Rfam assigns this 100-nucleotide RNA from Thermosinus carboxydivorans to the family "pan motif".
Pairs were carried over by alignment from the consensus structure, which is taken from published work.

RNA sequence: AGGGUGGCAUCAUCACGAGCCACACCUAACAAGUUAAGUUUAUGAAUUUAAUAGUAUGUGUCUUACCCCGCUUAGAGCCCAAAGGGACUGAGACGGAAGG
Numbered sequence: 001a002g003g004g005u006g007g008c009a010u011c012a013u014c015a016c017g018a019g020c021c022a023c024a025c026c027u028a029a030c031a032a033g034u035u036a037a038g039u040u041u042a043u044g045a046a047u048u049u050a051a052u053a054g055u056a057u058g059u060g061u062c063u064u065a066c067c068c069c070g071c072u073u074a075g076a077g078c079c080c081a082a083a084g085g086g087a088c089u090g091a092g093a094c095g096g097a098a099g100g
Stems, first nucleotide, its partner, number of pairs: 001027003004023005010018002068096003071092005078086002